The record is an 88-nucleotide RNA from Escherichia coli, which matches "CopA-like RNA" in Rfam. On this family, see Jiang et al., FEMS Microbiol Ecol 2017: "The CTX-M-14 plasmid pHK01 encodes novel small RNAs and influences host growth and motility". Its family is annotated with mRNA binding in the Gene Ontology. Pairs were carried over by alignment from the consensus structure, which was predicted with PFOLD. Rfam describes the family as follows. In several groups of bacterial plasmids, antisense RNAs regulate copy number through inhibition of replication initiator protein synthesis. These RNAs are characterised by a long hairpin structure interrupted by several unpaired residues or bulged loops. In plasmid R1, the inhibitory complex between the antisense RNA (CopA) and its target mRNA (CopT) is characterised by a four-way junction structure and a side-by-side helical alignment. Taxonomically the source falls in Escherichia (Bacteria, Pseudomonadati, Gammaproteobacteria, Enterobacteriaceae). The family's RNA type in Rfam is antisense RNA.

RNA sequence: AUAGAGCAACAGCUUCUAUGCGGUUUUUAGAUGGCCCCGGUAAUCUUCUUCGUCGCCAAACAUAGAAAGAUUAUCGGGGUUUUCGCUU
Numbered sequence: 001a002u003a004g005a006g007c008a009a010c011a012g013c014u015u016c017u018a019u020g021c022g023g024u025u026u027u028u029a030g031a032u033g034g035c036c037c038c039g040g041u042a043a044u045c046u047u048c049u050u051c052g053u054c055g056c057c058a059a060a061c062a063u064a065g066a067a068a069g070a071u072u073a074u075c076g077g078g079g080u081u082u083u084c085g086c087u088u
Stems, first nucleotide, its partner, number of pairs: 001019005029087002033081015